This 101-nucleotide RNA from Roseovarius azorensis belongs to the Rfam family "TPP riboswitch aptamer (THI element)".
Taxonomically the source falls in Roseovarius (Bacteria, Pseudomonadati, Pseudomonadota, Rhodobacterales).
Its family is annotated with thiamine pyrophosphate binding in the Gene Ontology.
Rfam describes the family as follows. Vitamin B(1) in its active form thiamin pyrophosphate (TPP) is an essential coenzyme that is synthesised by coupling of pyrimidine and thiazole moieties in bacteria.

[Rfam]
RNA sequence: GUGUAUCCGUUGGGGUGCCCGUUCAGGGCUGAGAGGCGAUGCGCCAACCCACCGAACCUGAUCCGGCUCGCACCGGCGUAGGGAACGGAGACCGCGCAACC
Numbered sequence: 001g002u003g004u005a006u007c008c009g010u011u012g013g014g015g016u017g018c019c020c021g022u023u024c025a026g027g028g029c030u031g032a033g034a035g036g037c038g039a040u041g042c043g044c045c046a047a048c049c050c051a052c053c054g055a056a057c058c059u060g061a062u063c064c065g066g067c068u069c070g071c072a073c074c075g076g077c078g079u080a081g082g083g084a085a086c087g088g089a090g091a092c093c094g095c096g097c098a099a100c101c
Stems, first nucleotide, its partner, number of pairs: 006089005011051004017029004036044003057082004063076004